This 118-nucleotide RNA from Psychroflexus torquis belongs to the Rfam family "Group II catalytic intron D1-D4-2".
Its family is annotated with Group II intron splicing in the Gene Ontology.
A reference for the family is Bonen and Vogel (2001), "The ins and outs of group II introns", Trends Genet.
Pairs were carried over by alignment from the consensus structure.

RNA sequence: GAUGGUAGAUCCAUCAGAGUCGUUGUAUAGGCGAUGGCUUUAAACUACUUAAAGGUGCUUUGAUUAAUAGUCUUGGUAUUGAGCGUUUAGGAGAAUCUAGUCCUAGAGAUUAGCAGGU
Number, nucleotide and partner (000 for none) at each position: 001g015002a014003u013004g012005g011006u000007a000008g000009a000010u000011c005012c004013a003014u002015c001016a041017g040018a039019g038020u037021c036022g000023u034024u033025g032026u031027a000028u000029a000030g000031g026032c025033g024034a023035u000036g021037g020038c019039u018040u017041u016042a000043a000044a000045c000046u117047a000048c091049u090050u089051a088052a087053a086054g080055g079056u000057g077058c076059u075060u000061u000062g072063a071064u070065u000066a000067a000068u000069a000070g064071u063072c062073u000074u000075g059076g058077u057078a000079u055080u054081g000082a000083g000084c000085g000086u053087u052088u051089a050090g049091g048092a000093g000094a000095a000096u000097c113098u112099a111100g110101u109102c000103c000104u000105a000106g000107a000108g000109a101110u100111u099112a098113g097114c000115a000116g000117g046118u000